[Rfam]
RNA sequence: GACAAAAUGAAUACAGUACCUUGUAUAAGUUUAGGAAUAAGGCCUGAACGUUUCUACCAGCUACCGGAAAUAGCUAGUCUACAGGGAGGAAUAACGAUUAU
Numbered sequence: 001g002a003c004a005a006a007a008u009g010a011a012u013a014c015a016g017u018a019c020c021u022u023g024u025a026u027a028a029g030u031u032u033a034g035g036a037a038u039a040a041g042g043c044c045u046g047a048a049c050g051u052u053u054c055u056a057c058c059a060g061c062u063a064c065c066g067g068a069a070a071u072a073g074c075u076a077g078u079c080u081a082c083a084g085g086g087a088g089g090a091a092u093a094a095c096g097a098u099u100a101u
Stems, first nucleotide, its partner, number of pairs: 019086007029049007058077001059075005
RNA: Purine riboswitch aptamer
Organism: Halobacillus sp. BBL2006